[Rfam]
Nucleotides: 089
Base pairs, nucleotide, nucleotide: 003054004053005052008050009049010048011047012046015043016042017077018076019075020074026039027038028037029036066084067083068082069081070080
Number, partner (000 for none) and nucleotide at each position: 001000u002000g003054a004053g005052c006000g007000g008050g009049c010048c011047g012046c013000g014000a015043c016042u017077g018076g019075c020074g021000u022000a023000c024000g025000c026039g027038u028037g029036g030000g031000a032000u033000c034000g035000a036029c037028c038027a039026c040000g041000a042016g043015g044000g045000a046012g047011c048010g049009g050008c051000g052005g053004u054003u055000c056000c057000a058000c059000c060000g061000a062000c063000g064000a065000g066084g067083u068082g069081u070080c071000g072000u073000c074020c075019g076018c077017c078000u079000g080070g081069g082068c083067a084066c085000c086000c087000g088000g089000a
This 89-nucleotide RNA from Streptomyces sp. SID3343 belongs to the Rfam family "ZMP/ZTP riboswitch aptamer (pfl RNA motif)". The source organism's lineage runs through Bacteria, Actinomycetota, Actinomycetes, Kitasatosporales and Streptomyces. The match comes from Rfam's covariance-model search (52 bits).